RNA sequence: GGAGCCGGACAGAUCGCCGCUGCGGGCAUCGGCCCGGAGAGGAAAGUCCGGGCUCCACAGGGCAGGACGCUGGAUAACGUCCAGGAAGGGCGACCUUCGGACAGCGCCACAGAAAGCAAACCGCCCGGCCGGUCCCGUACCGGCCGGGUAAGGGUGAAACGGUGGAGUAAGAGACCACCAGAUGCCGUGGUGACACGGCAUGCUCGGCAUACCCCGUCUGGAGCAAGGCCAAAUAGGGAAGGAGGCUGGCCCGGCCAUACCUUCCGGGUAGGCUGCUUGAGAGGGCAGGCAACUGCUCUUCUAGAGGAAUGGCGAUCGCGCACCCCCGGUGCGAACAGAACCCGGCUUAUCGUCCGACUCCUGCC
Numbered sequence: 001g002g003a004g005c006c007g008g009a010c011a012g013a014u015c016g017c018c019g020c021u022g023c024g025g026g027c028a029u030c031g032g033c034c035c036g037g038a039g040a041g042g043a044a045a046g047u048c049c050g051g052g053c054u055c056c057a058c059a060g061g062g063c064a065g066g067a068c069g070c071u072g073g074a075u076a077a078c079g080u081c082c083a084g085g086a087a088g089g090g091c092g093a094c095c096u097u098c099g100g101a102c103a104g105c106g107c108c109a110c111a112g113a114a115a116g117c118a119a120a121c122c123g124c125c126c127g128g129c130c131g132g133u134c135c136c137g138u139a140c141c142g143g144c145c146g147g148g149u150a151a152g153g154g155u156g157a158a159a160c161g162g163u164g165g166a167g168u169a170a171g172a173g174a175c176c177a178c179c180a181g182a183u184g185c186c187g188u189g190g191u192g193a194c195a196c197g198g199c200a201u202g203c204u205c206g207g208c209a210u211a212c213c214c215c216g217u218c219u220g221g222a223g224c225a226a227g228g229c230c231a232a233a234u235a236g237g238g239a240a241g242g243a244g245g246c247u248g249g250c251c252c253g254g255c256c257a258u259a260c261c262u263u264c265c266g267g268g269u270a271g272g273c274u275g276c277u278u279g280a281g282a283g284g285g286c287a288g289g290c291a292a293c294u295g296c297u298c299u300u301c302u303a304g305a306g307g308a309a310u311g312g313c314g315a316u317c318g319c320g321c322a323c324c325c326c327c328g329g330u331g332c333g334a335a336c337a338g339a340a341c342c343c344g345g346c347u348u349a350u351c352g353u354c355c356g357a358c359u360c361c362u363g364c365c
Stems, first nucleotide, its partner, number of pairs: 001361004006356005011350001012317007020039002023036005044348003048345005053223004060252004065219005070084005085098005099214002104212001106208003121153002123149011161179005181203001182201008227274004237265006244256004281300008
Dot-bracket structure: ((((.(((((((((((((.((.(((((....))))).))....[[[.[[[[[((((...[[[[.((((((((((.....)))))(((((....)))))((...(.(((............(((((((((((((.....)))))))))))..)).......(((((.........))))).(((((((((....)))))))).)..)))...))))))))))))...((((......((((((.((((.]]]]))))...)))))).....))))......((((((((....))))))))..........))))))).......................]]]]]]]].).))))).))))....
Notes:
Bacterial RNase P class A: a 365-nucleotide RNA from Desulfovibrio piger. The organism belongs to Desulfovibrio, within Bacteria. Its Rfam clan is "RNaseP clan". A search with the family's covariance model found it, with a score of 301 bits.